The family of this 99-nucleotide RNA from Fusobacterium gonidiaformans is "TPP riboswitch aptamer (THI element)". A search with the family's covariance model found it, with a score of 72 bits. Pairs were carried over by alignment from the consensus structure, which is taken from published work. Rfam links the family to the GO term thiamine pyrophosphate binding.
RNA sequence: UUUUAUUACUAGAGGAGCUAUCAUGGCUGAGAGGGAACAAUCCGACUCUUAUUACUUGAACUGGAUAAUGCCAGCGAAAGGAAGUAAUUUUUUUAUGUA
Numbered sequence: 001u002u003u004u005a006u007u008a009c010u011a012g013a014g015g016a017g018c019u020a021u022c023a024u025g026g027c028u029g030a031g032a033g034g035g036a037a038c039a040a041u042c043c044g045a046c047u048c049u050u051a052u053u054a055c056u057u058g059a060a061c062u063g064g065a066u067a068a069u070g071c072c073a074g075c076g077a078a079a080g081g082a083a084g085u086a087a088u089u090u091u092u093u094u095a096u097g098u099a
Stems, first nucleotide, its partner, number of pairs: 006087005011049004017027004034043003055080003061074004